[Rfam]
Shown here is a 167-nucleotide part of an RNA from Zopfia rhizophila, a member of the family "Eukaryotic small subunit ribosomal RNA". For this family Rfam cites "Crystal structure of the ribosome at 5.5 A resolution" (Yusupov et al., Science, 2001).
RNA sequence: UAUUACUUAUUAUUACUACUAAUUAAAUAGCUUAAUAAGGCCUUUAGAUUAGUUUAAAAAGGUUAGUAAUAACUUUCCCAAGCCAAAAAGUUCAUCAAACUUAGUUAUUUAGAGAAAGUAAAAGUUAUAAUAAGGUUUCUAUAAAUAAACCUAUAAAAGAAUUAUUA
Numbered sequence: 001u002a003u004u005a006c007u008u009a010u011u012a013u014u015a016c017u018a019c020u021a022a023u024u025a026a027a028u029a030g031c032u033u034a035a036u037a038a039g040g041c042c043u044u045u046a047g048a049u050u051a052g053u054u055u056a057a058a059a060a061g062g063u064u065a066g067u068a069a070u071a072a073c074u075u076u077c078c079c080a081a082g083c084c085a086a087a088a089a090g091u092u093c094a095u096c097a098a099a100c101u102u103a104g105u106u107a108u109u110u111a112g113a114g115a116a117a118g119u120a121a122a123a124g125u126u127a128u129a130a131u132a133a134g135g136u137u138u139c140u141a142u143a144a145a146u147a148a149a150c151c152u153a154u155a156a157a158a159g160a161a162u163u164a165u166u167a
Base pairs, nucleotide, nucleotide: 003134005131008127009126011124013121014120015119016118017117020114023111025110026109027108028107029106030105031104032103034101036099039096040095045090049086050085052083053082054081055080059076061074062073063072064071136159137158138157140155141154142153143152